RNA sequence: GGGCAAUGCCGGGCCCCUCUGGUCAUGGACUCUCCAUGGCGAUGUCGGAAUUGCUCC
Dot-bracket structure: .....((.((((.........((((((((...))))))))....)))).))......
Overview: terC RNA: a 57-nucleotide RNA from Devosia sp. Root685. The match comes from Rfam's covariance-model search (50 bits). Taxonomically the source falls in Devosia (Bacteria, Pseudomonadati, Pseudomonadota, Alphaproteobacteria). The base pairs follow the family's consensus structure, which is taken from published work.